RNA sequence: CUUCGCCCGCAUCGUGGAGGUCACGGCCGCCAUGACUGAGCGAAAUUUGAAUCUGGUCACGCCGCUGGCUCAUGAGGCCAACGCCAUGCGCGAUACAGAAACCAGCCGCCGGUGUGCGGAAAGGUCUGGCGCAGUUUCCCAACUGAGCAAUCGGUGGGGCGACGUAGAAAGCGUGAUAGGUAC
Numbered sequence: 001c002u003u004c005g006c007c008c009g010c011a012u013c014g015u016g017g018a019g020g021u022c023a024c025g026g027c028c029g030c031c032a033u034g035a036c037u038g039a040g041c042g043a044a045a046u047u048u049g050a051a052u053c054u055g056g057u058c059a060c061g062c063c064g065c066u067g068g069c070u071c072a073u074g075a076g077g078c079c080a081a082c083g084c085c086a087u088g089c090g091c092g093a094u095a096c097a098g099a100a101a102c103c104a105g106c107c108g109c110c111g112g113u114g115u116g117c118g119g120a121a122a123g124g125u126c127u128g129g130c131g132c133a134g135u136u137u138c139c140c141a142a143c144u145g146a147g148c149a150a151u152c153g154g155u156g157g158g159g160c161g162a163c164g165u166a167g168a169a170a171g172c173g174u175g176a177u178a179g180g181u182a183c
Stems, first nucleotide, its partner, number of pairs: 004042003012035006019028003057176006063083002066080005087133005096128004102124002106119004135162002138159003142155005
RNA: RT-15 RNA